[Rfam]
RNA sequence: GGCAGGUCUGAAUGCAGUGGUGUUUACAACUGAUUGAUCACAACUAGUUACAGAUUUCUUUUUUUCUUCUCUCCUCCCACUGUUUCAUUUGACUAGCCUUAA
Dot-bracket structure: (((.((((.((..(.(((((.(.....((..((.........................))..))...........))))))....)..)))))).)))....
Source information
This 102-nucleotide RNA from Homo sapiens belongs to the Rfam family "Y RNA". Taxonomically the source falls in Homo (Eukaryota, Sarcopterygii, Tetrapoda, Hominoidea). The match comes from Rfam's covariance-model search (68 bits).